[Rfam]
Nucleotides: 086
Base pairs, nucleotide, nucleotide: 019078020077021076023074024073028069029068033064034063035062036061039059040058041057042056043055044054
Number, partner (000 for none) and nucleotide at each position: 001000u002000u003000u004000u005000a006000g007000c008000a009000g010000a011000c012000u013000g014000c015000g016000u017000u018000a019078g020077g021076g022000a023074u024073a025000g026000a027000a028069a029068c030000g031000g032000a033064a034063a035062u036061c037000c038000u039059u040058u041057u042056u043055g044054u045000g046000a047000g048000g049000u050000a051000c052000g053000a054044a055043u056042a057041a058040a059039a060000a061036g062035a063034u064033u065000g066000c067000a068029g069028u070000g071000u072000a073024u074023a075000g076021c077020c078019c079000g080000a081000c082000c083000a084000c085000u086000u